This 84-nucleotide RNA from Paractinoplanes atraurantiacus belongs to the Rfam family "ZMP/ZTP riboswitch aptamer (pfl RNA motif)". The match comes from Rfam's covariance-model search (51 bits). The family's consensus secondary structure is taken from published work. NCBI's taxonomy places the organism under Bacteria, Actinomycetes, Micromonosporales, Micromonosporaceae, Paractinoplanes.

RNA sequence: GGCCCGGGCCGUGACUGGCGCGUUCGGAUGGGCCAACCAUCGGGGAGCGGCUCCUCUGACCUGCCGUGCGCCUGGGCCUCUUCA
Number, nucleotide and partner (000 for none) at each position: 001g000002g000003c000004c000005c000006g053007g052008g051009c050010c049011g048012u047013g000014a000015c044016u043017g072018g071019c070020g069021c068022g000023u000024u000025c000026g000027g000028a040029u039030g038031g037032g000033c000034c000035a000036a000037c031038c030039a029040u028041c000042g000043g016044g015045g000046a000047g012048c011049g010050g009051c008052u007053c006054c000055u000056c000057u000058g000059a000060c000061c000062u000063g077064c076065c075066g000067u000068g021069c020070g019071c018072c017073u000074g000075g065076g064077c063078c000079u000080c000081u000082u000083c000084a000